[Rfam]
Purine riboswitch aptamer: a 101-nucleotide RNA from Paenibacillus sp. IHBB 10380. Pairs were carried over by alignment from the consensus structure, which is taken from published work. The organism belongs to Paenibacillus, within Bacteria.
RNA sequence: UGUGACCGUUUUAUAUUGCUCUCGUAUAGGUGCAGGAAUAGGCCUGCAUGUCUCUACCCGAUCACCGGAAUGAUUGGACUACGGAGUAACAAUACAUACCA
Numbered sequence: 001u002g003u004g005a006c007c008g009u010u011u012u013a014u015a016u017u018g019c020u021c022u023c024g025u026a027u028a029g030g031u032g033c034a035g036g037a038a039u040a041g042g043c044c045u046g047c048a049u050g051u052c053u054c055u056a057c058c059c060g061a062u063c064a065c066c067g068g069a070a071u072g073a074u075u076g077g078a079c080u081a082c083g084g085a086g087u088a089a090c091a092a093u094a095c096a097u098a099c100c101a
Stems, first nucleotide, its partner, number of pairs: 018087004023083004030049007058077007